Source information:
This 130-nucleotide RNA from Aphidius gifuensis belongs to the Rfam family "Small Cajal body specific RNA 8". The base pairs follow the family's consensus structure, which is taken from published work. A reference for the family is Darzacq et al. (2002), "Cajal body-specific small nuclear RNAs: a novel class of 2'-O-methylation and pseudouridylation guide RNAs", EMBO J. Rfam describes the family as follows. scaRNAs are a specific class of small nuclear RNAs which localise to the Cajal bodies and guide the modification of RNA polymerase II transcribed spliceosomal RNAs U1, U2, U4, U5 and U12. U92 belong to the H/ACA box class of guide RNAs as it has the predicted hairpin-hinge-hairpin-tail structure, conserved H/ACA-box motifs and is found associated with GAR1. NCBI's taxonomy places the organism under Eukaryota, Eumetazoa, Bilateria, Protostomia, Aphidius.

[Rfam]
RNA sequence: UGGAAGAUUGAUACAUGAAAAUGAUCAAGUUACACAAUUAUCAUCACCAAGUCUUCCAAUAAAAAAAAUGCUUUCUGAUGACUGUAAAUUGUCAAGCAAUAAUUUACAGACAGAUACGAAGCAAACAUUU
Numbered sequence: 001u002g003g004a005a006g007a008u009u010g011a012u013a014c015a016u017g018a019a020a021a022u023g024a025u026c027a028a029g030u031u032a033c034a035c036a037a038u039u040a041u042c043a044u045c046a047c048c049a050a051g052u053c054u055u056c057c058a059a060u061a062a063a064a065a066a067a068a069u070g071c072u073u074u075c076u077g078a079u080g081a082c083u084g085u086a087a088a089u090u091g092u093c094a095a096g097c098a099a100u101a102a103u104u105u106a107c108a109g110a111c112a113g114a115u116a117c118g119a120a121g122c123a124a125a126c127a128u129u130u
Stems, first nucleotide, its partner, number of pairs: 002057006015044004022036002069123006082109003087104004